[Rfam]
RNA: U5 spliceosomal RNA
RNA sequence: AGCCGUGCAGUGAGCACAGAGCGAACUAUUCUUUCGCCUUUUACUAAAGAGUACCGUGUGCUCGCCGCUUAUAGCGGCAUACGCCUAUUUUUGGAGGCCUAUUUCCUUUUCUGGAAUGG
Dot-bracket structure: ..((((.(.(((((((((........((((((((...........))))))))...))))))))).)......)))).....................(((((((.......)))))))
Numbered sequence: 001a002g003c004c005g006u007g008c009a010g011u012g013a014g015c016a017c018a019g020a021g022c023g024a025a026c027u028a029u030u031c032u033u034u035c036g037c038c039u040u041u042u043a044c045u046a047a048a049g050a051g052u053a054c055c056g057u058g059u060g061c062u063c064g065c066c067g068c069u070u071a072u073a074g075c076g077g078c079a080u081a082c083g084c085c086u087a088u089u090u091u092u093g094g095a096g097g098c099c100u101a102u103u104u105c106c107u108u109u110u111c112u113g114g115a116a117u118g119g
Stems, first nucleotide, its partner, number of pairs: 003077004008067001010065009027053008099119007